[Rfam]
RNA: Small nucleolar RNA snoR111
RNA sequence: CAGAAAAAUGAGAGGAUUAAUUUAGUACCUCUCGUUACAAGGAAACAGAGGAAGAAAGAUAAGGUGAGAUAUCGUUUCAGUCGUCCAGUUUUUGAUUGGCGAUCUGAUUGUUGCUCCUCUACAU
Number, nucleotide and partner (000 for none) at each position: 001c000002a000003g000004a000005a000006a000007a036008a035009u034010g033011a032012g031013a030014g029015g028016a000017u000018u000019a000020a000021u000022u000023u000024a000025g000026u000027a000028c015029c014030u013031c012032u011033c010034g009035u008036u007037a000038c000039a000040a000041g000042g000043a000044a000045a000046c000047a000048g000049a000050g000051g000052a000053a000054g000055a000056a000057a000058g000059a000060u000061a000062a000063g120064g119065u000066g116067a115068g114069a000070u000071a108072u107073c106074g105075u000076u000077u000078c000079a000080g103081u102082c101083g100084u099085c098086c000087a000088g000089u094090u000091u000092u000093u000094g089095a000096u000097u000098g085099g084100c083101g082102a081103u080104c000105u074106g073107a072108u071109u000110g000111u000112u000113g000114c068115u067116c066117c000118u000119c064120u063121a000122c000123a000124u000